A member of the RNA family "Flavo-1 RNA" from Polaribacter sp. IC066, 78 nucleotides long. It scores 42 bits against the family's covariance model. Rfam classes the family as a small RNA.

[Rfam]
RNA sequence: AAAUAGUUGCGCUAGGGAUUGAAACGACAUCCUUUUUUGAGGAACGAAAAAAAGAUAUAGUGUAAAGCCUGCUUGCCG
Numbered sequence: 001a002a003a004u005a006g007u008u009g010c011g012c013u014a015g016g017g018a019u020u021g022a023a024a025c026g027a028c029a030u031c032c033u034u035u036u037u038u039g040a041g042g043a044a045c046g047a048a049a050a051a052a053a054g055a056u057a058u059a060g061u062g063u064a065a066a067g068c069c070u071g072c073u074u075g076c077c078g
Stems, first nucleotide, its partner, number of pairs: 015070003019066002024061002029056003035051004
Dot-bracket structure: ..............(((.((...((...(((...((((.........))))..)))...))...)).)))........